[Rfam]
Nucleotides: 125
Base pairs, nucleotide, nucleotide: 030057031056032055033054034053038049039048040047041046068117069116070115071114072113080103081101082100083099084098085097086096087095088094
Number, partner (000 for none) and nucleotide at each position: 001000u002000u003000u004000u005000c006000c007000c008000c009000u010000u011000u012000c013000a014000c015000u016000u017000u018000g019000c020000c021000a022000a023000u024000u025000g026000g027000a028000c029000u030057u031056g032055u033054c034053u035000u036000u037000a038049u039048u040047g041046g042000u043000c044000a045000u046041u047040c048039a049038a050000g051000u052000g053034a054033g055032g056031c057030a058000a059000a060000g061000g062000a063000a064000a065000u066000a067000c068117c069116c070115u071114u072113u073000u074000a075000a076000a077000a078000c079000u080103c081101a082100g083099g084098c085097a086096a087095a088094c089000u090000g091000g092000g093000u094088g095087u096086u097085u098084g099083u100082c101081u102000u103080g104000u105000a106000u107000c108000c109000u110000g111000u112000c113072a114071g115070a116069g117068g118000a119000a120000a121000c122000a123000a124000a125000a
Small nucleolar RNA SNORA27: a 125-nucleotide RNA sequence from Erinaceus europaeus. ACA27 is a member of the H/ACA class of snoRNA that guide the sites of modification of uridines to pseudouridines.